[Rfam]
RNA sequence: AAUUCCAGAAAAGCAACGGACAGUGUCCUUUAGUCCGUCGCAUUUCUGGGACUUU
Numbered sequence: 001a002a003u004u005c006c007a008g009a010a011a012a013g014c015a016a017c018g019g020a021c022a023g024u025g026u027c028c029u030u031u032a033g034u035c036c037g038u039c040g041c042a043u044u045u046c047u048g049g050g051a052c053u054u055u
Stems, first nucleotide, its partner, number of pairs: 001053001003051009013041002016038006
RNA: MIR8008 microRNA precursor family